[Rfam]
RNA: Small nucleolar RNA SNORD46
RNA sequence: AGUGUGGAUGAUGAAAACCGUACCUUAGGUAGGUUUUGUUUUGGCCGUUUUGGUCAAUGCUUUGGGCCUACCAAUGCUAGGACUUGUCAUAGUUACACUGACACAUU
Numbered sequence: 001a002g003u004g005u006g007g008a009u010g011a012u013g014a015a016a017a018c019c020g021u022a023c024c025u026u027a028g029g030u031a032g033g034u035u036u037u038g039u040u041u042u043g044g045c046c047g048u049u050u051u052g053g054u055c056a057a058u059g060c061u062u063u064g065g066g067c068c069u070a071c072c073a074a075u076g077c078u079a080g081g082a083c084u085u086g087u088c089a090u091a092g093u094u095a096c097a098c099u100g101a102c103a104c105a106u107u
Base pairs, nucleotide, nucleotide: 001107002106003105004104005103006102